Source information:
mir-19 microRNA precursor family: a 76-nucleotide RNA sequence from Lepidothrix coronata. Its Rfam clan is "mir-19 clan".
RNA sequence: GUUUUCUGUUAGUUUUGCAUAGUUGCACUACAAGAAGAGAGUGGUUGUGCAAAUCUAUGCAAAGCUGAUGGUGGCC
Numbered sequence: 001g002u003u004u005u006c007u008g009u010u011a012g013u014u015u016u017g018c019a020u021a022g023u024u025g026c027a028c029u030a031c032a033a034g035a036a037g038a039g040a041g042u043g044g045u046u047g048u049g050c051a052a053a054u055c056u057a058u059g060c061a062a063a064g065c066u067g068a069u070g071g072u073g074g075c076c
Stems, first nucleotide, its partner, number of pairs: 003074002006071014023052006030045002